Description: This 77-nucleotide sequence from cyanobacterium endosymbiont of Rhopalodia gibberula belongs to the Rfam family "Glutamine riboswitch aptamer (glnA leader)".
[Rfam]
RNA sequence: AUCGUUCAUCUCGACAUAGCUAACAGAAAGGGUUGUGAAGGGACGGAAGUAAGUAAGGAUAACUGAAGGAACGCAAG
Dot-bracket structure: ..(((((.((((...........................))))..[.....(((.......)))....)))))]...
Numbered sequence: 001a002u003c004g005u006u007c008a009u010c011u012c013g014a015c016a017u018a019g020c021u022a023a024c025a026g027a028a029a030g031g032g033u034u035g036u037g038a039a040g041g042g043a044c045g046g047a048a049g050u051a052a053g054u055a056a057g058g059a060u061a062a063c064u065g066a067a068g069g070a071a072c073g074c075a076a077g
Stems, first nucleotide, its partner, number of pairs: 003073005009043004046074001052064003